[Rfam]
RNA sequence: UUUACGUGGUUAGAAACGUUUCCAAGUGAUCAGCCUCUCUGGAAAUGCUUCAUGCCGCGUUAGAAAAACGACGAGCUCCCAGGUUACUGCCAAAUUUGCGAUAAAACGGGAGCUGCAAUGAAUAUGUUCGUGGCGAUUGUUAAGAAUUAAUCGUGACUGCUGAUAGUUGCAUACAUAU
Numbered sequence: 001u002u003u004a005c006g007u008g009g010u011u012a013g014a015a016a017c018g019u020u021u022c023c024a025a026g027u028g029a030u031c032a033g034c035c036u037c038u039c040u041g042g043a044a045a046u047g048c049u050u051c052a053u054g055c056c057g058c059g060u061u062a063g064a065a066a067a068a069c070g071a072c073g074a075g076c077u078c079c080c081a082g083g084u085u086a087c088u089g090c091c092a093a094a095u096u097u098g099c100g101a102u103a104a105a106a107c108g109g110g111a112g113c114u115g116c117a118a119u120g121a122a123u124a125u126g127u128u129c130g131u132g133g134c135g136a137u138u139g140u141u142a143a144g145a146a147u148u149a150a151u152c153g154u155g156a157c158u159g160c161u162g163a164u165a166g167u168u169g170c171a172u173a174c175a176u177a178u
Stems, first nucleotide, its partner, number of pairs: 004060007013051003017047008026039001028037002075113006084104003088100003114171006122164002126160002130157002133154007
Background
Rfam assigns this 178-nucleotide sequence from Drosophila melanogaster to the family "Drosophila small cajal body-specific RNA PsiU2-55". The organism belongs to Sophophora, within Eukaryota. The family's consensus secondary structure was predicted with RNAfold. The family has 3 seed sequences and 18 matches in Rfam 15.1. The sequence is in the family's curated seed alignment.